[Rfam]
RNA: Hepatitis C virus (HCV) cis-acting replication element (CRE)
RNA sequence: CCAUUGGUCUCCGCGAGCAAGCUUGACUUAUCAGGCUGGUUCGUGGCAGGCUACGACGGGGGGGACAUUUAUCACAGCGUGUCCCAGGCUCGACCCCGUCUCUUACUCCUUGGCCUACUCCUACUCACCGUAGGGGUAGGCAUCUUUUUGCUCCCCGCUCGGUAGACGGGCGGCCUUA
Numbered sequence: 001c002c003a004u005u006g007g008u009c010u011c012c013g014c015g016a017g018c019a020a021g022c023u024u025g026a027c028u029u030a031u032c033a034g035g036c037u038g039g040u041u042c043g044u045g046g047c048a049g050g051c052u053a054c055g056a057c058g059g060g061g062g063g064g065a066c067a068u069u070u071a072u073c074a075c076a077g078c079g080u081g082u083c084c085c086a087g088g089c090u091c092g093a094c095c096c097c098g099u100c101u102c103u104u105a106c107u108c109c110u111u112g113g114c115c116u117a118c119u120c121c122u123a124c125u126c127a128c129c130g131u132a133g134g135g136g137u138a139g140g141c142a143u144c145u146u147u148u149u150g151c152u153c154c155c156c157g158c159u160c161g162g163u164a165g166a167c168g169g170g171c172g173g174c175c176u177u178a
Stems, first nucleotide, its partner, number of pairs: 006051001008049001011046003016041003020037007055100007062085006113141012150174003154170004159166001